[Rfam]
RNA: Small nucleolar RNA snR35
RNA sequence: AUACAAAAUUAAUCGUGCGGAUUAAUAAUCCAGGACUAUAAAACCGUGUUGCUUUAACCGAUUCCAUUCGGUUUGGGCGUCAAGUCCAUCGGAGAGAAAAAACGUUCAUCUUAAUGCCCUCUUGUGUGAUAGACUUUAGCUGAUUAUGCAAGGGCUGGUAGAACAUACAAAU
Numbered sequence: 001a002u003a004c005a006a007a008a009u010u011a012a013u014c015g016u017g018c019g020g021a022u023u024a025a026u027a028a029u030c031c032a033g034g035a036c037u038a039u040a041a042a043a044c045c046g047u048g049u050u051g052c053u054u055u056a057a058c059c060g061a062u063u064c065c066a067u068u069c070g071g072u073u074u075g076g077g078c079g080u081c082a083a084g085u086c087c088a089u090c091g092g093a094g095a096g097a098a099a100a101a102a103c104g105u106u107c108a109u110c111u112u113a114a115u116g117c118c119c120u121c122u123u124g125u126g127u128g129a130u131a132g133a134c135u136u137u138a139g140c141u142g143a144u145u146a147u148g149c150a151a152g153g154g155c156u157g158g159u160a161g162a163a164c165a166u167a168c169a170a171a172u
Stems, first nucleotide, its partner, number of pairs: 008026007029093003033087004051078004056073006109163001111161003116155005123150008